[Rfam]
RNA: Bacteroidales small SRP
Organism: Prevotella sp. CAG:924
RNA sequence: AGUCUCUUACGGUCAGCUCCCUCAGAAUCCCCCAGGACGGGAACGUAGCAAGGGUAUGAGGUCGUAGCGACGCGAUAAGAACCGCU
Numbered sequence: 001a002g003u004c005u006c007u008u009a010c011g012g013u014c015a016g017c018u019c020c021c022u023c024a025g026a027a028u029c030c031c032c033c034a035g036g037a038c039g040g041g042a043a044c045g046u047a048g049c050a051a052g053g054g055u056a057u058g059a060g061g062u063c064g065u066a067g068c069g070a071c072g073c074g075a076u077a078a079g080a081a082c083c084g085c086u
Base pairs, nucleotide, nucleotide: 001086002085003084005080006079007078008077009076010074011073012071013070